[Rfam]
RNA sequence: UAUAUUUUGCGGGGGGACUUACGAGUUGAGAAGGUUAAAACCUGACCCUUUGAACCUGACAGUUAACACUGACGUAGGGAGCAAUGGAUUUGAGGCU
Numbered sequence: 001u002a003u004a005u006u007u008u009g010c011g012g013g014g015g016g017a018c019u020u021a022c023g024a025g026u027u028g029a030g031a032a033g034g035u036u037a038a039a040a041c042c043u044g045a046c047c048c049u050u051u052g053a054a055c056c057u058g059a060c061a062g063u064u065a066a067c068a069c070u071g072a073c074g075u076a077g078g079g080a081g082c083a084a085u086g087g088a089u090u091u092g093a094g095g096c097u
Stems, first nucleotide, its partner, number of pairs: 007084004011049004016043001017026003033042003055078004060071003
Record summary: Shown here is a 97-nucleotide RNA from Paenibacillus montaniterrae, a member of the family "TPP riboswitch aptamer (THI element)". The family's consensus secondary structure is taken from published work. It scores 62 bits against the family's covariance model.